[Rfam]
RNA sequence: AGCUAUAGAGAGAAUGAAAAAUGGAUACUGGUACUCAUAUGGUACUGGAAGCAAAAAAGAAUAAAUUGAAUAAUUCUUCCAAGUGGUUUACAUUUGGACAAAAUAAGACCGUAGUUUAAAAACUGC
Numbered sequence: 001a002g003c004u005a006u007a008g009a010g011a012g013a014a015u016g017a018a019a020a021a022u023g024g025a026u027a028c029u030g031g032u033a034c035u036c037a038u039a040u041g042g043u044a045c046u047g048g049a050a051g052c053a054a055a056a057a058a059g060a061a062u063a064a065a066u067u068g069a070a071u072a073a074u075u076c077u078u079c080c081a082a083g084u085g086g087u088u089u090a091c092a093u094u095u096g097g098a099c100a101a102a103a104u105a106a107g108a109c110c111g112u113a114g115u116u117u118a119a120a121a122a123c124u125g126c
Stems, first nucleotide, its partner, number of pairs: 001029002004027003009022001032119001039112004047062001077098001079097007